Annotation: A member of the RNA family "Bacterial RNase P class A" from Devosia sp. LC5, 386 nucleotides long. The family's RNA type in Rfam is ribozyme. Its family is annotated with ribonuclease P activity, dimeric ribonuclease P complex and tRNA processing in the Gene Ontology. The family's consensus secondary structure is taken from published work. The match comes from Rfam's covariance-model search (313 bits).

[Rfam]
RNA sequence: CCAGUUGACCGGGUGACCGCUGGCGGAUGGGUAACUGUCCGCUGGAGGAAAGUCCGGGCUCCUUCGAAACACGGUGCCGGGUAACGCCCGGCGGGGGCGACCCUAGGGAAAGUGCCACAGAAAGCAAACCGCUCCGGCAUGCCGGAGUAAGGGUGAAAGGGUGCGGUAAGAGCGCACCGGGUGACCAGCAAUGGAAGCCGCACGGUAAACCCCACCGGGAGCAAGACCAAAUAGGGAUGACGCGGGGCUUCGGCCCCAGCCUGUUUUGAGGCCAGAUCAUCCGGGUUGGUUGCAACAGGCGCCUGGUAACAGGCGUCGCAGAUGAAUGGUCACCACGUCGCGGAAACGCGGCCCUACAGAACCCGGCUUACAGGUCAACUGGCGUU
Numbered sequence: 001c002c003a004g005u006u007g008a009c010c011g012g013g014u015g016a017c018c019g020c021u022g023g024c025g026g027a028u029g030g031g032u033a034a035c036u037g038u039c040c041g042c043u044g045g046a047g048g049a050a051a052g053u054c055c056g057g058g059c060u061c062c063u064u065c066g067a068a069a070c071a072c073g074g075u076g077c078c079g080g081g082u083a084a085c086g087c088c089c090g091g092c093g094g095g096g097g098c099g100a101c102c103c104u105a106g107g108g109a110a111a112g113u114g115c116c117a118c119a120g121a122a123a124g125c126a127a128a129c130c131g132c133u134c135c136g137g138c139a140u141g142c143c144g145g146a147g148u149a150a151g152g153g154u155g156a157a158a159g160g161g162u163g164c165g166g167u168a169a170g171a172g173c174g175c176a177c178c179g180g181g182u183g184a185c186c187a188g189c190a191a192u193g194g195a196a197g198c199c200g201c202a203c204g205g206u207a208a209a210c211c212c213c214a215c216c217g218g219g220a221g222c223a224a225g226a227c228c229a230a231a232u233a234g235g236g237a238u239g240a241c242g243c244g245g246g247g248c249u250u251c252g253g254c255c256c257c258a259g260c261c262u263g264u265u266u267u268g269a270g271g272c273c274a275g276a277u278c279a280u281c282c283g284g285g286u287u288g289g290u291u292g293c294a295a296c297a298g299g300c301g302c303c304u305g306g307u308a309a310c311a312g313g314c315g316u317c318g319c320a321g322a323u324g325a326a327u328g329g330u331c332a333c334c335a336c337g338u339c340g341c342g343g344a345a346a347c348g349c350g351g352c353c354c355u356a357c358a359g360a361a362c363c364c365g366g367c368u369u370a371c372a373g374g375u376c377a378a379c380u381g382g383c384g385u386u
Stems, first nucleotide, its partner, number of pairs: 001382010011371001012334007020045009050369003054366005059221004072217005077091005092106001093104004107212002112210002114206003129152002131148007160178006179201001180199003185194003225291004235282006261275003265271001298317008